[Rfam]
The family of this 90-nucleotide RNA sequence from marine gamma proteobacterium HTCC2143 is "Selenocysteine transfer RNA". Its Rfam clan is "tRNA clan". Taxonomically the source falls in Spongiibacteraceae (Bacteria, Pseudomonadati, Gammaproteobacteria, Cellvibrionales).
RNA sequence: GGAAGGGCGAUGUCCCCGGUGGGGCGCCUGGUCUUCAACACCAGUGAGGUGCCUAACCGGUGCCUGGUGGGUUCGACUCCUACCUCUUCC
Numbered sequence: 001g002g003a004a005g006g007g008c009g010a011u012g013u014c015c016c017c018g019g020u021g022g023g024g025c026g027c028c029u030g031g032u033c034u035u036c037a038a039c040a041c042c043a044g045u046g047a048g049g050u051g052c053c054u055a056a057c058c059g060g061u062g063c064c065u066g067g068u069g070g071g072u073u074c075g076a077c078u079c080c081u082a083c084c085u086c087u088u089c090c
Base pairs, nucleotide, nucleotide: 001090002089003088004087005086006085007084009083011026012025013024014023015022016021028044029043030042031041032040047065048064049063050062051061068082069081070080071079